RNA sequence: AAAUACAAUUAUGAGAGGACUGAUGGAUGGACAAUGAUUAACUAAUCUAUAUUUUUAUUUGAAAUGAAUAACUUCAAACUGCAAAAUAUAGGGUUAGUCUAUCCAUUUUUACAAAUCAGUCUACACUUUAUUCGUCAUGGUCCCAAUGGCAAAAAAAGAACUUAUGUAAUAUAAGUGAAAGGCUAAUCCUUCCAAUUAUAAAUUGGGAGGAUUUCUUA
Dot-bracket structure: ...............(((.....((((..(((..........((((((((((((...((((((.(.....).)))))).....)))))).)))))))))..))))..))).......(.......((((.((...................)).))))......)...................(((((((((((.......))))))))))).....
Numbered sequence: 001a002a003a004u005a006c007a008a009u010u011a012u013g014a015g016a017g018g019a020c021u022g023a024u025g026g027a028u029g030g031a032c033a034a035u036g037a038u039u040a041a042c043u044a045a046u047c048u049a050u051a052u053u054u055u056u057a058u059u060u061g062a063a064a065u066g067a068a069u070a071a072c073u074u075c076a077a078a079c080u081g082c083a084a085a086a087u088a089u090a091g092g093g094u095u096a097g098u099c100u101a102u103c104c105a106u107u108u109u110u111a112c113a114a115a116u117c118a119g120u121c122u123a124c125a126c127u128u129u130a131u132u133c134g135u136c137a138u139g140g141u142c143c144c145a146a147u148g149g150c151a152a153a154a155a156a157a158g159a160a161c162u163u164a165u166g167u168a169a170u171a172u173a174a175g176u177g178a179a180a181g182g183c184u185a186a187u188c189c190u191u192c193c194a195a196u197u198a199u200a201a202a203u204u205g206g207g208a209g210g211a212u213u214u215c216u217u218a
Stems, first nucleotide, its partner, number of pairs: 016110003024105004030099003043096006049089006058078006065071001118165001126158004131153002185213011
Bacillus sRNA ncr1575: a 218-nucleotide RNA sequence from Bacillus sp. PK3_68.
The match comes from Rfam's covariance-model search (154 bits).
For this family Rfam cites "Identification of regulatory RNAs in Bacillus subtilis" (Irnov et al., Nucleic Acids Res, 2010).
The base pairs follow the family's consensus structure, which is taken from published work.
Lineage of the source: Bacteria > Bacillati > Bacillota > Caryophanales > Bacillus.